[Rfam]
RNA sequence: GGGUUUGAAAGGAGAGCUCUGCUUCCUCAUACCUCCCAUCCUUUCUGUGGAUAAGUAUGAGGAAAUGGAGCUCUCCUUCCACUUCU
Numbered sequence: 001g002g003g004u005u006u007g008a009a010a011g012g013a014g015a016g017c018u019c020u021g022c023u024u025c026c027u028c029a030u031a032c033c034u035c036c037c038a039u040c041c042u043u044u045c046u047g048u049g050g051a052u053a054a055g056u057a058u059g060a061g062g063a064a065a066u067g068g069a070g071c072u073c074u075c076c077u078u079c080c081a082c083u084u085c086u
Base pairs, nucleotide, nucleotide: 002085003084006081007080009078010077011076012075013074014073015072016071017070018069019068020067021066023064024063025062026061027060028059029058030057031056032055034053036050037049038048039047